Rfam assigns this 355-nucleotide RNA sequence from Bifidobacterium minimum to the family "Bacterial RNase P class A". Its family is annotated with ribonuclease P activity, tRNA processing and dimeric ribonuclease P complex in the Gene Ontology. Pairs were carried over by alignment from the consensus structure, which is taken from published work. On this family, see Frank and Pace, Annu Rev Biochem 1998: "Ribonuclease P: unity and diversity in a tRNA processing ribozyme".
RNA sequence: CGAGACUUUCCGAUGGCCGCGGCCCCGUUUCGGGGCUGAGGAACUUCCGGGCUCCAAAGAGCACGAUGGCGGAUAACGUCCGCCCAGGGUGACCUGAGAGACAGCGCAGCAGAGAACAGACCGCCAUGCUCCGGCAUGGUAAGGGUGAAACGGCGGUGUAAGAGACCACCGGGUCGUUGGUGACAACGGCCGCAUGGCAAGCCUCAUCGGGAGCAAGGCCAAGCAGAAGGCGUCAAGGGCUGCUCGCCCGAGCCUUCGGGUAGGCUGCUAGAGCCUGACGGCAACGUCAGGUCGAGAUGGAUGGCCAUCCGCAUGGAGACAUGUGACAGAACCCGGGGUAUGGAAGUCUCGCACC
Numbered sequence: 001c002g003a004g005a006c007u008u009u010c011c012g013a014u015g016g017c018c019g020c021g022g023c024c025c026c027g028u029u030u031c032g033g034g035g036c037u038g039a040g041g042a043a044c045u046u047c048c049g050g051g052c053u054c055c056a057a058a059g060a061g062c063a064c065g066a067u068g069g070c071g072g073a074u075a076a077c078g079u080c081c082g083c084c085c086a087g088g089g090u091g092a093c094c095u096g097a098g099a100g101a102c103a104g105c106g107c108a109g110c111a112g113a114g115a116a117c118a119g120a121c122c123g124c125c126a127u128g129c130u131c132c133g134g135c136a137u138g139g140u141a142a143g144g145g146u147g148a149a150a151c152g153g154c155g156g157u158g159u160a161a162g163a164g165a166c167c168a169c170c171g172g173g174u175c176g177u178u179g180g181u182g183a184c185a186a187c188g189g190c191c192g193c194a195u196g197g198c199a200a201g202c203c204u205c206a207u208c209g210g211g212a213g214c215a216a217g218g219c220c221a222a223g224c225a226g227a228a229g230g231c232g233u234c235a236a237g238g239g240c241u242g243c244u245c246g247c248c249c250g251a252g253c254c255u256u257c258g259g260g261u262a263g264g265c266u267g268c269u270a271g272a273g274c275c276u277g278a279c280g281g282c283a284a285c286g287u288c289a290g291g292u293c294g295a296g297a298u299g300g301a302u303g304g305c306c307a308u309c310c311g312c313a314u315g316g317a318g319a320c321a322u323g324u325g326a327c328a329g330a331a332c333c334c335g336g337g338g339u340a341u342g343g344a345a346g347u348c349u350c351g352c353a354c355c
Stems, first nucleotide, its partner, number of pairs: 001351010012309007020038008043339003047336005052213004059245004064209005069083005084098001085096004099204002104202002106198002121144002123140007152170002155167003171193001172191008217266004226257006237249004273292008